[Rfam]
RNA sequence: GCGGAGGAGUGCCGCGUGGCCUCUGCCCGGACGCGGACCCUGACGUACUUCCCCGACGCCAGGUACCGCUGUCCGGUCAGAGACCACGGGGCAUUCCCCCGCCGAG
Numbered sequence: 001g002c003g004g005a006g007g008a009g010u011g012c013c014g015c016g017u018g019g020c021c022u023c024u025g026c027c028c029g030g031a032c033g034c035g036g037a038c039c040c041u042g043a044c045g046u047a048c049u050u051c052c053c054c055g056a057c058g059c060c061a062g063g064u065a066c067c068g069c070u071g072u073c074c075g076g077u078c079a080g081a082g083a084c085c086a087c088g089g090g091g092c093a094u095u096c097c098c099c100c101g102c103c104g105a106g
Base pairs, nucleotide, nucleotide: 010093011092012091013090015088016087018085019084021082022081023080024079025078027076028075029074030073031072032071033069034068035067036066039063040062041061042060044058045057046056
RNA: mraW RNA
Organism: Nocardia puris